[Rfam]
RNA: 6S / SsrS RNA
RNA sequence: UUUACCCUGGGGUGUUCGUCAGGCGGAUUUAAGUCCCUGAGCCGAUAAGCAAUACCAAAGGGUUAGUACUUGAUAGCUAUUGAGCAAGCUUGGCAUGCACCGAGAAGCCUACGGUUAUCAUUGCUGAUCCGCCUUGAACCAGCUGGUUCAAGGGCCACAAUCCUCAACGGCACCCUGGGGUAUUC
Numbered sequence: 001u002u003u004a005c006c007c008u009g010g011g012g013u014g015u016u017c018g019u020c021a022g023g024c025g026g027a028u029u030u031a032a033g034u035c036c037c038u039g040a041g042c043c044g045a046u047a048a049g050c051a052a053u054a055c056c057a058a059a060g061g062g063u064u065a066g067u068a069c070u071u072g073a074u075a076g077c078u079a080u081u082g083a084g085c086a087a088g089c090u091u092g093g094c095a096u097g098c099a100c101c102g103a104g105a106a107g108c109c110u111a112c113g114g115u116u117a118u119c120a121u122u123g124c125u126g127a128u129c130c131g132c133c134u135u136g137a138a139c140c141a142g143c144u145g146g147u148u149c150a151a152g153g154g155c156c157a158c159a160a161u162c163c164u165c166a167a168c169g170g171c172a173c174c175c176u177g178g179g180g181u182a183u184u185c
Base pairs, nucleotide, nucleotide: 003182004181005180006179007178008177009176010175011174012173013172014171015170017169018168019167033155034154035153036152038150039149040148041147042146043145060130061129062128064126065125066124067123068122071120072119073118074117075116076115077114078113084108085107089104090103091102092101093100